[Rfam]
RNA sequence: CGAGUACGAAAGACAAUCGCGAGCGUAAGCUCGAGGAAAGUCCGAGCUCCGCAGGGCAGAGUGCCGGAUAACAUCCGGCGAGGGUGACCUCAGAGAUAGUGCCACAGAAAUGUAGACCGCCGGCAACGGUAAGGGUGGAACGGUAUGGUAAGAGCAUACCGGCGGCGGGGUAACCCGUCGGCCAGGUAAACCUCACUCGGAGCAAGACCGAAUAGAAAAGGGAUGAAGUUGCCCGCUGACCUUUUGGGUGUGUCGCUUGAACAGUCGAGUAAUCGGCUGUCUAGAAAGAUGAUUGUCACGUGUAAACGUACAGAACUCGGCUUAUUGACUACUCGUAAU
Numbered sequence: 001c002g003a004g005u006a007c008g009a010a011a012g013a014c015a016a017u018c019g020c021g022a023g024c025g026u027a028a029g030c031u032c033g034a035g036g037a038a039a040g041u042c043c044g045a046g047c048u049c050c051g052c053a054g055g056g057c058a059g060a061g062u063g064c065c066g067g068a069u070a071a072c073a074u075c076c077g078g079c080g081a082g083g084g085u086g087a088c089c090u091c092a093g094a095g096a097u098a099g100u101g102c103c104a105c106a107g108a109a110a111u112g113u114a115g116a117c118c119g120c121c122g123g124c125a126a127c128g129g130u131a132a133g134g135g136u137g138g139a140a141c142g143g144u145a146u147g148g149u150a151a152g153a154g155c156a157u158a159c160c161g162g163c164g165g166c167g168g169g170g171u172a173a174c175c176c177g178u179c180g181g182c183c184a185g186g187u188a189a190a191c192c193u194c195a196c197u198c199g200g201a202g203c204a205a206g207a208c209c210g211a212a213u214a215g216a217a218a219a220g221g222g223a224u225g226a227a228g229u230u231g232c233c234c235g236c237u238g239a240c241c242u243u244u245u246g247g248g249u250g251u252g253u254c255g256c257u258u259g260a261a262c263a264g265u266c267g268a269g270u271a272a273u274c275g276g277c278u279g280u281c282u283a284g285a286a287a288g289a290u291g292a293u294u295g296u297c298a299c300g301u302g303u304a305a306a307c308g309u310a311c312a313g314a315a316c317u318c319g320g321c322u323u324a325u326u327g328a329c330u331a332c333u334c335g336u337a338a339u
Stems, first nucleotide, its partner, number of pairs: 001335006008329001011325001012297007020033005038323003042320005047202004054234004059198005064078005079093001080091004094193002099191002101187003117134002119130004142160006162182001163180007206254003216245006227237003261280008
RNA: Bacterial RNase P class A
Organism: Negativicoccus succinicivorans